A member of the RNA family "mir-9223 microRNA precursor family" from Myotis lucifugus, 75 nucleotides long. Rfam links the family to the GO terms miRNA-mediated post-transcriptional gene silencing and RISC complex. The family has 9 seed sequences and 14,641 matches in Rfam 15.1.
[Rfam]
RNA sequence: GGCGGUUCUCGGGUGAUGCACCCUGGAAUCAGGCUCCCUCCUCUCUGGUUCUGGGUGCGUCAGCCGAGAAUUGCA
Numbered sequence: 001g002g003c004g005g006u007u008c009u010c011g012g013g014u015g016a017u018g019c020a021c022c023c024u025g026g027a028a029u030c031a032g033g034c035u036c037c038c039u040c041c042u043c044u045c046u047g048g049u050u051c052u053g054g055g056u057g058c059g060u061c062a063g064c065c066g067a068g069a070a071u072u073g074c075a
Base pairs, nucleotide, nucleotide: 002074003073005071006070007069008068009067010066011065012064014062015061016060017059019057020056021055022054023053025052026051027050028049029048030047031046032045033044